A member of the RNA family "Connexin-43 internal ribosome entry site (IRES)" from Chrysochloris asiatica, 203 nucleotides long. From the family's description: This family represents the connexin-43 internal ribosome entry site (IRES) which allows cap independent translation during conditions such as heat shock and stress. A search with the family's covariance model found it, with a score of 134 bits. The literature on the family includes a 1999 paper in FEBS Lett by Schiavi et al., "Connexin43 mRNA contains a functional internal ribosome entry site".
RNA sequence: AGCGUUUACCCCAGGUAGCAGCAGUUUCCUUUCAUUGGGGAAAGGAGUAUGGAAAGUACCCAACAGCAGCAACCUUUCAAACUUUAAAUAGGCAAUUCUAAGUGAUUGAACUUUUCUUUUCAUCUUACUUCAUCCUCCAAGGAGUACAAUCAUUUGGCAUGCUUGCUUCACUUCUUUUAUGCUAAGAACAGCAUCCAGGCAGC
Dot-bracket structure: .((...(((.....)))...))........(((.((((((.(((.......(.(((..............(...((.................))...)(((.(......).)))..))))......)))....)))))).)))........(((((.(((((..(((..(.(.....).)..)))...))))))))))....
Numbered sequence: 001a002g003c004g005u006u007u008a009c010c011c012c013a014g015g016u017a018g019c020a021g022c023a024g025u026u027u028c029c030u031u032u033c034a035u036u037g038g039g040g041a042a043a044g045g046a047g048u049a050u051g052g053a054a055a056g057u058a059c060c061c062a063a064c065a066g067c068a069g070c071a072a073c074c075u076u077u078c079a080a081a082c083u084u085u086a087a088a089u090a091g092g093c094a095a096u097u098c099u100a101a102g103u104g105a106u107u108g109a110a111c112u113u114u115u116c117u118u119u120u121c122a123u124c125u126u127a128c129u130u131c132a133u134c135c136u137c138c139a140a141g142g143a144g145u146a147c148a149a150u151c152a153u154u155u156g157g158c159a160u161g162c163u164u165g166c167u168u169c170a171c172u173u174c175u176u177u178u179a180u181g182c183u184a185a186g187a188a189c190a191g192c193a194u195c196c197a198g199g200c201a202g203c
Stems, first nucleotide, its partner, number of pairs: 002022002007017003031144003035140006042130003052121001054120003071099001075095002100115003104111001153199005159194005166186003171181001173179001